[Rfam]
RNA sequence: UAUUACAGUCAGGGGAGCCUGUGAGCAGGCUGAGAGGAAGUACUCAACUUCGACCCUUUAACCUGAUAUGGAUAAUGCCAGCGUAGGGAGAUGAAAUUAAUAAUCC
Dot-bracket structure: .......(((((((..(((((....)))))......(((((.....)))))..))))....((((...(((......)))...))))..)))..............
Numbered sequence: 001u002a003u004u005a006c007a008g009u010c011a012g013g014g015g016a017g018c019c020u021g022u023g024a025g026c027a028g029g030c031u032g033a034g035a036g037g038a039a040g041u042a043c044u045c046a047a048c049u050u051c052g053a054c055c056c057u058u059u060a061a062c063c064u065g066a067u068a069u070g071g072a073u074a075a076u077g078c079c080a081g082c083g084u085a086g087g088g089a090g091a092u093g094a095a096a097u098u099a100a101u102a103a104u105c106c
Stems, first nucleotide, its partner, number of pairs: 008092003011057004017030005037051005062087004069080003
A member of the RNA family "TPP riboswitch aptamer (THI element)" from Lactonifactor longoviformis, 106 nucleotides long. From the family's description: Vitamin B(1) in its active form thiamin pyrophosphate (TPP) is an essential coenzyme that is synthesised by coupling of pyrimidine and thiazole moieties in bacteria. The previously detected thiamin-regulatory element, thi box was extended, resulting in a new, highly conserved RNA secondary structure, the THI element, which is widely distributed in eubacteria and also occurs in some archaea. Analysis of operon structures identified a large number of new candidate thiamin-regulated genes, mostly transporters, in various prokaryotic organisms. The THI element is a riboswitch that directly binds to TPP to regulate gene expression through a variety of mechanisms in archaea, bacteria and eukaryotes. through a variety of mechanisms in archaea, bacteria and eukaryotes. Tandem TPP riboswitches have been reported where both TPP riboswitches respond independently to TPP. The structure of TPP riboswitch has been reported for Escherichia coli and Arabidopsis thaliana.